[Rfam]
Record summary:
The record is a 500-nucleotide part of an RNA from Thermoplasmatales archaeon E-plasma, which matches "Archaeal small subunit ribosomal RNA" in Rfam. NCBI's taxonomy places the organism under Archaea, Methanobacteriati, Thermoplasmatota, Thermoplasmata, Thermoplasmatales. Rfam 15.1 lists 709 matches to the family in 491 species. Rfam links the family to the GO terms ribosome and structural constituent of ribosome.

RNA sequence: AUUCCGGUUGAUCCUGCCGGCGGCCACUGCUAUCAGGUUUCGGCUAAGCCAUGCGAGUCUAGGGAUCGCAAGAUACCGGCAUACUGCUCAGUAACACGCGGAUAAUCUGCCCCCAGGUGAAGAAUACCCUCGGGAAACUGAGGCUAAUACUUCAUAAUCACUAUAUGCUGGAAUGCUUUGGUGAUGAAAGAAUUUCGCCUGAGGAUGAGUCUGCGGCCUAUCAGGUCGUAUGUGGUGUAAUGGACCACAUAGCCUAAGACGGGUACGGGCCUUGAAAGAGGGAGCCCGGAGAUGGACUCUGAGACAUUAGUCCAGGCCCUACGGGGCGCAGCAGGCGCGAAAACUGUGCAAUGCGCGAAAGCGCGACACGGGAAGCCUGAGUGCCUUAACACAGUUAAGGCUUUUCUCAAGCCUAAAAAGCUUGAGGAAUAAGAGCUGGGUAAGACGGGUGCCAGCCGCCGCGGUAACACCCGCAGCUCGAGUGGUGGUCACUUUUAUUG
Numbered sequence: 001a002u003u004c005c006g007g008u009u010g011a012u013c014c015u016g017c018c019g020g021c022g023g024c025c026a027c028u029g030c031u032a033u034c035a036g037g038u039u040u041c042g043g044c045u046a047a048g049c050c051a052u053g054c055g056a057g058u059c060u061a062g063g064g065a066u067c068g069c070a071a072g073a074u075a076c077c078g079g080c081a082u083a084c085u086g087c088u089c090a091g092u093a094a095c096a097c098g099c100g101g102a103u104a105a106u107c108u109g110c111c112c113c114c115a116g117g118u119g120a121a122g123a124a125u126a127c128c129c130u131c132g133g134g135a136a137a138c139u140g141a142g143g144c145u146a147a148u149a150c151u152u153c154a155u156a157a158u159c160a161c162u163a164u165a166u167g168c169u170g171g172a173a174u175g176c177u178u179u180g181g182u183g184a185u186g187a188a189a190g191a192a193u194u195u196c197g198c199c200u201g202a203g204g205a206u207g208a209g210u211c212u213g214c215g216g217c218c219u220a221u222c223a224g225g226u227c228g229u230a231u232g233u234g235g236u237g238u239a240a241u242g243g244a245c246c247a248c249a250u251a252g253c254c255u256a257a258g259a260c261g262g263g264u265a266c267g268g269g270c271c272u273u274g275a276a277a278g279a280g281g282g283a284g285c286c287c288g289g290a291g292a293u294g295g296a297c298u299c300u301g302a303g304a305c306a307u308u309a310g311u312c313c314a315g316g317c318c319c320u321a322c323g324g325g326g327c328g329c330a331g332c333a334g335g336c337g338c339g340a341a342a343a344c345u346g347u348g349c350a351a352u353g354c355g356c357g358a359a360a361g362c363g364c365g366a367c368a369c370g371g372g373a374a375g376c377c378u379g380a381g382u383g384c385c386u387u388a389a390c391a392c393a394g395u396u397a398a399g400g401c402u403u404u405u406c407u408c409a410a411g412c413c414u415a416a417a418a419a420g421c422u423u424g425a426g427g428a429a430u431a432a433g434a435g436c437u438g439g440g441u442a443a444g445a446c447g448g449g450u451g452c453c454a455g456c457c458g459c460c461g462c463g464g465u466a467a468c469a470c471c472c473g474c475a476g477c478u479c480g481a482g483u484g485g486u487g488g489u490c491a492c493u494u495u496u497a498u499u500g
Stems, first nucleotide, its partner, number of pairs: 004020005022490010033380009042338001048336003052333003057080003062077002065074003087291003097215007106208002111204002114201004119153004128143006158184006165177001167176002190196002217263003224254003229251008266288004270281004293314006316327004344370001346369003352365005383401008406426007433479006446473004455462002